[Rfam]
RNA sequence: GAAGGAGCAAUACUGUAUUUCUUGUUUUAUCAAGAGGGUUGGUAUUGCUCCUUCAACA
Numbered sequence: 001g002a003a004g005g006a007g008c009a010a011u012a013c014u015g016u017a018u019u020u021c022u023u024g025u026u027u028u029a030u031c032a033a034g035a036g037g038g039u040u041g042g043u044a045u046u047g048c049u050c051c052u053u054c055a056a057c058a
Stems, first nucleotide, its partner, number of pairs: 001054014019036006
Dot-bracket structure: ((((((((((((((....((((((......))))))....))))))))))))))....
RNA: Plastid-psbA-3 3UTR RNA